[Rfam]
Source information
The record is a 373-nucleotide RNA sequence from Henriciella mobilis, which matches "Bacterial RNase P class A" in Rfam. The base pairs follow the family's consensus structure, which is taken from published work.
RNA sequence: CCAGACAGCCGGGCAGCCGCUGGUAGUGGGGUAACCUGCUGCUGGAGGAAAGUCCGGGCUCCAUGGAGACAAGGCGGCGGAUAAUGUCCGCCCGGUGCGAGCCGAGGGAAAGUGCCACAGAGAGCAGACCGCUUCGGGCCUGGCCCGGAGUAAGGGUGAAAGGGUGGGGUAAGAGCCCACCGCGGGGGCGGCAACGUCCCUGGCAUGGUAAACCCCGCCUGGAGCAAGACCAAAUAGGGGGUGCGCAUGGGCCGUUUCCAGCCUGCGCCCCGGGUGUGUCGCGUGAGGGUCCUGGCGACAGGGCUCCCAGAGGAAUGGUUGCCGAACCCUGAAAAUGGGGGAACAGAACCCGGCUUACAGGCUGUCUGGUCAG
Numbered sequence: 001c002c003a004g005a006c007a008g009c010c011g012g013g014c015a016g017c018c019g020c021u022g023g024u025a026g027u028g029g030g031g032u033a034a035c036c037u038g039c040u041g042c043u044g045g046a047g048g049a050a051a052g053u054c055c056g057g058g059c060u061c062c063a064u065g066g067a068g069a070c071a072a073g074g075c076g077g078c079g080g081a082u083a084a085u086g087u088c089c090g091c092c093c094g095g096u097g098c099g100a101g102c103c104g105a106g107g108g109a110a111a112g113u114g115c116c117a118c119a120g121a122g123a124g125c126a127g128a129c130c131g132c133u134u135c136g137g138g139c140c141u142g143g144c145c146c147g148g149a150g151u152a153a154g155g156g157u158g159a160a161a162g163g164g165u166g167g168g169g170u171a172a173g174a175g176c177c178c179a180c181c182g183c184g185g186g187g188g189c190g191g192c193a194a195c196g197u198c199c200c201u202g203g204c205a206u207g208g209u210a211a212a213c214c215c216c217g218c219c220u221g222g223a224g225c226a227a228g229a230c231c232a233a234a235u236a237g238g239g240g241g242u243g244c245g246c247a248u249g250g251g252c253c254g255u256u257u258c259c260a261g262c263c264u265g266c267g268c269c270c271c272g273g274g275u276g277u278g279u280c281g282c283g284u285g286a287g288g289g290u291c292c293u294g295g296c297g298a299c300a301g302g303g304c305u306c307c308c309a310g311a312g313g314a315a316u317g318g319u320u321g322c323c324g325a326a327c328c329c330u331g332a333a334a335a336u337g338g339g340g341g342a343a344c345a346g347a348a349c350c351c352g353g354c355u356u357a358c359a360g361g362c363u364g365u366c367u368g369g370u371c372a373g
Stems, first nucleotide, its partner, number of pairs: 001369010011358001012323007020045009050356003054353005059224004068257002072220005077091005092106001093104004107215002112213002114209003129155002131151009163181006182204001183202008228280003238271006249264004287306008
NCBI's taxonomy places the organism under Bacteria, Pseudomonadati, Alphaproteobacteria, Hyphomonadaceae, Henriciella.